About this RNA:
The family of this 453-nucleotide sequence from Erysiphe pulchra is "RNase MRP". Rfam classes the family as a ribozyme. Its family is annotated with ribonuclease MRP activity, rRNA processing and ribonuclease MRP complex in the Gene Ontology.
[Rfam]
RNA sequence: UGCUCGCUCAAAGAAUCGCAUUCAAAGCUCUCAAACAGAAGUAUCCAUUGUGGUACUUCAAUUCUUUACUUGCUUUGGGAGAAAGUCCCCGGACAUCCUUCUUCGUAAGGAACGCGGAAACGCACCGCCAUAGAAGUUAUAGCGGUUAAUCCUCUGUUUGAAACUAUUGAUUCACGCAUCAUACUUCCGUACAAAACCUAUCUUUAAUUACUUCCGAGAACUUCAUGUUGAUAAAUGAGAUGACCUAUGAGGUGAAGAUAUGAGCCCGAGCUUCUUAUGGACGAUGUGAUACGACAAAGAAUAAAUUUUUGAUAGACGGAUGAUUUGAUCUGGCAUAAUAGUUAUUGACGACAAGUGGAACUCAAUCGUCGUGAAUUAUAGUCAUGCGAUUGCUCAUCUUGCUACAAUAGUAGGAAGGUGAGUAACUUGAUGGGGCUUACUCUUGAUGCGAGC
Number, nucleotide and partner (000 for none) at each position: 001u000002g453003c452004u451005c450006g449007c448008u446009c445010a444011a443012a000013g000014a391015a390016u389017c388018g387019c386020a000021u000022u079023c077024a076025a075026a074027g073028c072029u000030c000031u000032c000033a000034a000035a000036c000037a000038g059039a058040a057041g056042u055043a054044u053045c000046c000047a000048u000049u000050g000051u000052g000053g044054u043055a042056c041057u040058u039059c038060a000061a000062u000063u000064c000065u000066u000067u000068a000069c000070u000071u000072g028073c027074u026075u025076u024077g023078g000079g022080a000081g000082a000083a438084a437085g436086u000087c435088c434089c433090c432091g000092g000093a000094c000095a000096u000097c000098c000099u000100u000101c000102u000103u000104c000105g000106u000107a000108a000109g000110g000111a000112a000113c000114g123115c122116g121117g000118a000119a000120a000121c116122g115123c114124a000125c000126c000127g000128c000129c000130a000131u000132a000133g000134a000135a000136g000137u000138u000139a000140u000141a000142g000143c000144g000145g000146u000147u000148a000149a000150u000151c000152c000153u000154c000155u000156g000157u000158u000159u000160g000161a000162a000163a000164c000165u000166a000167u000168u000169g000170a000171u000172u000173c000174a000175c000176g000177c000178a000179u000180c000181a000182u000183a000184c000185u000186u000187c000188c000189g000190u000191a000192c000193a000194a000195a000196a000197c000198c000199u000200a000201u000202c000203u000204u000205u000206a000207a000208u000209u000210a000211c000212u000213u000214c000215c000216g000217a000218g000219a000220a000221c000222u000223u000224c000225a000226u000227g000228u000229u000230g000231a000232u000233a000234a000235a000236u000237g000238a000239g000240a000241u000242g000243a000244c000245c000246u000247a000248u000249g000250a000251g000252g000253u000254g000255a000256a000257g000258a000259u000260a000261u000262g000263a000264g000265c000266c000267c000268g363269a362270g361271c000272u000273u000274c000275u000276u000277a000278u000279g000280g000281a000282c000283g000284a000285u000286g000287u000288g000289a000290u000291a000292c000293g000294a000295c000296a000297a000298a000299g000300a000301a000302u000303a000304a000305a000306u000307u000308u000309u000310u000311g000312a000313u000314a000315g000316a000317c000318g000319g000320a000321u000322g000323a000324u000325u000326u000327g000328a000329u000330c000331u000332g000333g000334c000335a345336u344337a343338a342339u000340a000341g000342u338343u337344a336345u335346u000347g000348a000349c000350g000351a000352c000353a000354a000355g000356u000357g000358g000359a000360a000361c270362u269363c268364a000365a000366u000367c000368g000369u000370c000371g000372u000373g000374a000375a000376u000377u000378a000379u000380a000381g000382u000383c000384a000385u000386g019387c018388g017389a016390u015391u014392g000393c422394u421395c420396a419397u418398c417399u416400u415401g000402c000403u000404a000405c000406a000407a000408u000409a000410g000411u000412a000413g000414g000415a400416a399417g398418g397419u396420g395421a394422g393423u000424a000425a000426c000427u000428u000429g000430a000431u000432g090433g089434g088435g087436c085437u084438u083439a000440c000441u000442c000443u011444u010445g009446a008447u000448g007449c006450g005451a004452g003453c002
The literature on the family includes a 1993 paper in FASEB J by Schmitt et al., "Secondary structure of RNase MRP RNA as predicted by phylogenetic comparison".